[Rfam]
The record is a 114-nucleotide sequence from Chelonia mydas, which matches "mraW RNA" in Rfam.
RNA sequence: CUGCAGCGUAGACAUCUGGGCUCAUGCUGGAGCCCAGGCUCUGGGACCCUUCCCCCUUGCAGGGUUCCAGAGCCUGGGCUCCAGUGUGAGCCCGGACAUCUACACUGCAAUUUU
Numbered sequence: 001c002u003g004c005a006g007c008g009u010a011g012a013c014a015u016c017u018g019g020g021c022u023c024a025u026g027c028u029g030g031a032g033c034c035c036a037g038g039c040u041c042u043g044g045g046a047c048c049c050u051u052c053c054c055c056c057u058u059g060c061a062g063g064g065u066u067c068c069a070g071a072g073c074c075u076g077g078g079c080u081c082c083a084g085u086g087u088g089a090g091c092c093c094g095g096a097c098a099u100c101u102a103c104a105c106u107g108c109a110a111u112u113u114u
Base pairs, nucleotide, nucleotide: 010101011100012099015096016095018093019092021090022089023088024087025086026085027084028083029082030081031080032079033078034077035076036075037074038073039072040071041070042069043068044067045066046065047064048063049062050061

The match comes from Rfam's covariance-model search (60 bits).